[Rfam]
RNA sequence: ACCACUAAGCCAUCUCUCCAGCCCCCCCAAAAAAAAUUUAAAAAAAAAGGGCUGGAGAGAUGGCUUAGUGGU
Numbered sequence: 001a002c003c004a005c006u007a008a009g010c011c012a013u014c015u016c017u018c019c020a021g022c023c024c025c026c027c028c029a030a031a032a033a034a035a036a037u038u039u040a041a042a043a044a045a046a047a048a049g050g051g052c053u054g055g056a057g058a059g060a061u062g063g064c065u066u067a068g069u070g071g072u
Base pairs, nucleotide, nucleotide: 002071003070004069005068006067007066008065009064010063011062012061013060014059015058016057017056018055019054020053021052022051023050024049

This 72-nucleotide sequence from Jaculus jaculus belongs to the Rfam family "mir-3473 microRNA precursor family".